[Rfam]
RNA: MIR6274 microRNA precursor family
RNA sequence: GAAUAGCACUGUUUUGCUAUUUUCGGCCAAUAACACAAUGACAUGUGGAAAAGUUAUCCUACAUGUCAUUGCAUUAUUGGCCAGAGAUAACAAAAAAUAUUAUUC
Numbered sequence: 001g002a003a004u005a006g007c008a009c010u011g012u013u014u015u016g017c018u019a020u021u022u023u024c025g026g027c028c029a030a031u032a033a034c035a036c037a038a039u040g041a042c043a044u045g046u047g048g049a050a051a052a053g054u055u056a057u058c059c060u061a062c063a064u065g066u067c068a069u070u071g072c073a074u075u076a077u078u079g080g081c082c083a084g085a086g087a088u089a090a091c092a093a094a095a096a097a098u099a100u101u102a103u104u105c
Stems, first nucleotide, its partner, number of pairs: 002104004012095005018089003022085002025082009036071013050057001